[Rfam]
RNA: Small nucleolar SNORD12/SNORD106
Organism: Falcunculus frontatus
RNA sequence: GCUGGUAGAGGUGAUGACUCUUUCCCCGUCAGAGCGACAGUGUUGACUGCUCUGUCCAAGCCAGGUCGUGUCUGAUGCACCAGC
Number, nucleotide and partner (000 for none) at each position: 001g084002c083003u082004g081005g080006u079007a000008g000009a076010g000011g000012u000013g000014a000015u000016g000017a000018c000019u000020c000021u000022u000023u000024c000025c000026c000027c000028g000029u000030c000031a000032g000033a000034g000035c000036g000037a000038c000039a000040g000041u000042g000043u000044u000045g000046a000047c000048u000049g000050c000051u000052c000053u000054g000055u000056c000057c000058a000059a000060g000061c000062c000063a000064g000065g000066u000067c000068g000069u000070g000071u000072c000073u000074g000075a000076u009077g000078c000079a006080c005081c004082a003083g002084c001